[Rfam]
The record is a 74-nucleotide sequence from Paraburkholderia phymatum, which matches "Burkholderia sRNA 54" in Rfam. Lineage of the source: Bacteria > Pseudomonadota > Betaproteobacteria > Burkholderiales > Paraburkholderia phymatum. Rfam describes the family as follows. Identified by RNA-seq, RACE and Northern blot. Strongly expressed in biofilm. Gene Ontology term of the family: bacterial biofilm matrix.
RNA sequence: CCGUCUCUCAGGUUCUGGACGGCCCUCGGAAUGCCAGAACCUAUUCACGCCAGCGCAAGCUGGCGUCUUUUUGU
Number, nucleotide and partner (000 for none) at each position: 001c000002c000003g000004u000005c000006u000007c000008u000009c000010a042011g041012g040013u039014u038015c037016u036017g035018g034019a000020c000021g000022g000023c029024c028025c000026u000027c000028g024029g023030a000031a000032u000033g000034c018035c017036a016037g015038a014039a013040c012041c011042u010043a000044u000045u000046c000047a066048c065049g064050c063051c062052a061053g060054c059055g000056c000057a000058a000059g054060c053061u052062g051063g050064c049065g048066u047067c000068u000069u000070u000071u000072u000073g000074u000
By type it is a small RNA.